[Rfam]
RNA sequence: AGGGCGAGGACGCGGGCGAUAUAGGGAAUGAGCGGCAGGUUCAGGACCAGGAGGAUCACAUUGCCCAGAUACAUGGAGAUGAUCACCGACCAGAACACUUCCGGGUUUUCCACGAACAGCCGGGGGCC
Numbered sequence: 001a002g003g004g005c006g007a008g009g010a011c012g013c014g015g016g017c018g019a020u021a022u023a024g025g026g027a028a029u030g031a032g033c034g035g036c037a038g039g040u041u042c043a044g045g046a047c048c049a050g051g052a053g054g055a056u057c058a059c060a061u062u063g064c065c066c067a068g069a070u071a072c073a074u075g076g077a078g079a080u081g082a083u084c085a086c087c088g089a090c091c092a093g094a095a096c097a098c099u100u101c102c103g104g105g106u107u108u109u110c111c112a113c114g115a116a117c118a119g120c121c122g123g124g125g126g127c128c
Stems, first nucleotide, its partner, number of pairs: 004017002008013001026128001029125001033122004039113002043109001045107004050102005056097001061093003066088001068086001073083002
Dot-bracket structure: ...((..(....)..))........(..(...((((..((..(.((((.(((((.(....(((..(.(....((.......))..).)..)))...)))))).)))).)..)).....))))..)..)
This 128-nucleotide RNA from Stappia taiwanensis belongs to the Rfam family "Ruegeria cis8 sRNA". On this family, see Rivers et al., Front Microbiol 2016: "Experimental Identification of Small Non-Coding RNAs in the Model Marine Bacterium Ruegeria pomeroyi DSS-3". It scores 72 bits against the family's covariance model. The family's RNA type in Rfam is small RNA. The family's consensus secondary structure was predicted with RNAfold. NCBI's taxonomy places the organism under Bacteria, Pseudomonadati, Pseudomonadota, Stappiaceae, Stappia.